This 219-nucleotide RNA belongs to the Rfam family "Group II catalytic intron D1-D4-6". It is one of the family's seed sequences. Gene Ontology term of the family: Group II intron splicing.
RNA sequence: CGUGCAUUCCAUCCAGAAGGACUUAGCAAGUCACUGGAAGCGAGUCUUGCAUGGGUCUUAGCGAUAAGGCUUGUGAAGCGUAGACAGCGGGUACAAAAGCCGCGUGAUUGAGCCACGAAAUAGUCAAACAUUGCAUGAGGCUUUCACCGUGUGGUGCGUGGGAGCGACCGUGGACGCGCGAUAAGCGAGCGUGGACACCUCGGCCGGGGUCUGAGAGCG
Numbered sequence: 001c002g003u004g005c006a007u008u009c010c011a012u013c014c015a016g017a018a019g020g021a022c023u024u025a026g027c028a029a030g031u032c033a034c035u036g037g038a039a040g041c042g043a044g045u046c047u048u049g050c051a052u053g054g055g056u057c058u059u060a061g062c063g064a065u066a067a068g069g070c071u072u073g074u075g076a077a078g079c080g081u082a083g084a085c086a087g088c089g090g091g092u093a094c095a096a097a098a099g100c101c102g103c104g105u106g107a108u109u110g111a112g113c114c115a116c117g118a119a120a121u122a123g124u125c126a127a128a129c130a131u132u133g134c135a136u137g138a139g140g141c142u143u144u145c146a147c148c149g150u151g152u153g154g155u156g157c158g159u160g161g162g163a164g165c166g167a168c169c170g171u172g173g174a175c176g177c178g179c180g181a182u183a184a185g186c187g188a189g190c191g192u193g194g195a196c197a198c199c200u201c202g203g204c205c206g207g208g209g210u211c212u213g214a215g216a217g218c219g
Base pairs, nucleotide, nucleotide: 012038013037014036015035016034020032021031022030023029024188026186027185040088041087044085045084046083047082048080049079050075051074052073053072054071055070056069057068058067059066060065109213110211112210113209114208116206117205136202137201138200139199140165141164142163147161148160149159150158151157152156170198171197172196175193176192177191178190179189